[Rfam]
Small nucleolar RNA R12: a 76-nucleotide RNA sequence from Carya illinoinensis. On this family, see Chen et al., Nucleic Acids Res 2003: "The high diversity of snoRNAs in plants: identification and comparative study of 120 snoRNA genes from Oryza sativa". Gene Ontology terms of the family: nucleolus and RNA processing.
RNA sequence: UGUUGGAUGAUGAAAUGAAUUAGACGGAUUCCAACUGAUUUUUUAAUACACGAUUAAGUAGCAACUUCUGAGAACG
Numbered sequence: 001u002g003u004u005g006g007a008u009g010a011u012g013a014a015a016u017g018a019a020u021u022a023g024a025c026g027g028a029u030u031c032c033a034a035c036u037g038a039u040u041u042u043u044u045a046a047u048a049c050a051c052g053a054u055u056a057a058g059u060a061g062c063a064a065c066u067u068c069u070g071a072g073a074a075c076g
Stems, first nucleotide, its partner, number of pairs: 001076004

Notes: The source organism's lineage runs through Eukaryota, Euphyllophyta, Gunneridae, Fagales and Carya. The base pairs follow the family's consensus structure, which was predicted with PFOLD. From the family's description: snoR12 is a C/D box small nucleolar RNA, which acts as a methylation guide for 25S ribosomal RNA in plants. snoR12 has been alternatively named snoZ44 in Arabidopsis and snoZ131 in rice.